[Rfam]
RNA sequence: CCCGCCACUCUGCCCGUCUGUUAGUGACUGUGUAUAGUCCAGUGGAGGCUAAGAGAGACUCAGCUCUAGGAAGCAGGCUACCCAGAAAAGUGGGCAAUCCUGUGCCGAAAGGCCUGGUACAAUA
Number, nucleotide and partner (000 for none) at each position: 001c000002c000003c000004g000005c045006c044007a043008c042009u041010c000011u000012g000013c000014c000015c000016g000017u000018c032019u000020g029021u027022u000023a000024g000025u000026g000027a021028c000029u020030g000031u000032g018033u000034a000035u000036a000037g000038u000039c000040c000041a009042g008043u007044g006045g005046a000047g000048g000049c000050u000051a000052a000053g000054a000055g000056a000057g000058a000059c000060u117061c116062a115063g114064c112065u111066c000067u109068a000069g106070g105071a000072a000073g000074c102075a101076g100077g099078c000079u097080a000081c094082c093083c092084a000085g000086a000087a000088a000089a000090g000091u000092g083093g082094g081095c000096a000097a079098u000099c077100c076101u075102g074103u000104g000105c070106c069107g000108a000109a067110a000111g065112g064113c000114c063115u062116g061117g060118u000119a000120c000121a000122a000123u000124a000